[Rfam]
RNA sequence: AUCGAAGUACGGCGGGCGCGCCGUACAUACAGCCGCCAUGGCAUCUGCGGAUAUAGCCGGAAUACAGGAUGACCGAUCCGUAAGCCGCAGAGUAAGUCCCCCAG
Numbered sequence: 001a002u003c004g005a006a007g008u009a010c011g012g013c014g015g016g017c018g019c020g021c022c023g024u025a026c027a028u029a030c031a032g033c034c035g036c037c038a039u040g041g042c043a044u045c046u047g048c049g050g051a052u053a054u055a056g057c058c059g060g061a062a063u064a065c066a067g068g069a070u071g072a073c074c075g076a077u078c079c080g081u082a083a084g085c086c087g088c089a090g091a092g093u094a095a096g097u098c099c100c101c102c103a104g
Stems, first nucleotide, its partner, number of pairs: 002076001007026007040099002042096001044091007058080004063075001067074002

A member of the RNA family "cow-rumen-2 RNA", 104 nucleotides long. By type it is a small RNA. Pairs were carried over by alignment from the consensus structure, which is taken from published work. The sequence is in the family's curated seed alignment.